The record is a 312-nucleotide RNA from Anser cygnoides, which matches "Small Cajal body-specific RNA 7" in Rfam. Pairs were carried over by alignment from the consensus structure. By type it is a small Cajal body RNA. The organism belongs to Anser, within Eukaryota. Gene Ontology terms of the family: RNA processing and nucleolus.
RNA sequence: UGGAAGUGAUGAAAUAGAGAUAAUUGGAUGUCUCUUUGAAUGGCGAGUGUGUGAUAAAUAGCAUUGAAAUGGGGUGGGUGGGCGGGGAAGUGAGUGUGCGUGUGCAUGCGUGUAUAGAAGAGGCUUUAAAUGGGGGCACUGAUAAUGAAGUGCUGAUUCCGGAGUGCAUCUGAGGCAUGUUGUUAAAUUCUGGGGUCCUGUUUUCCGACAUUGCCGAUGAUUAAAGCCCAAAACAAGCUCACCAAGACAGGCCUAGGCAUCUUAAAUCUCUAACAGGUUCAUUAAUAGAAGUGAUCCUGUGAUCUGAUCCAA
Numbered sequence: 001u002g003g004a005a006g007u008g009a010u011g012a013a014a015u016a017g018a019g020a021u022a023a024u025u026g027g028a029u030g031u032c033u034c035u036u037u038g039a040a041u042g043g044c045g046a047g048u049g050u051g052u053g054a055u056a057a058a059u060a061g062c063a064u065u066g067a068a069a070u071g072g073g074g075u076g077g078g079u080g081g082g083c084g085g086g087g088a089a090g091u092g093a094g095u096g097u098g099c100g101u102g103u104g105c106a107u108g109c110g111u112g113u114a115u116a117g118a119a120g121a122g123g124c125u126u127u128a129a130a131u132g133g134g135g136g137c138a139c140u141g142a143u144a145a146u147g148a149a150g151u152g153c154u155g156a157u158u159c160c161g162g163a164g165u166g167c168a169u170c171u172g173a174g175g176c177a178u179g180u181u182g183u184u185a186a187a188u189u190c191u192g193g194g195g196u197c198c199u200g201u202u203u204u205c206c207g208a209c210a211u212u213g214c215c216g217a218u219g220a221u222u223a224a225a226g227c228c229c230a231a232a233a234c235a236a237g238c239u240c241a242c243c244a245a246g247a248c249a250g251g252c253c254u255a256g257g258c259a260u261c262u263u264a265a266a267u268c269u270c271u272a273a274c275a276g277g278u279u280c281a282u283u284a285a286u287a288g289a290a291g292u293g294a295u296c297c298u299g300u301g302a303u304c305u306g307a308u309c310c311a312a
Stems, first nucleotide, its partner, number of pairs: 001311004178210005185203001187196003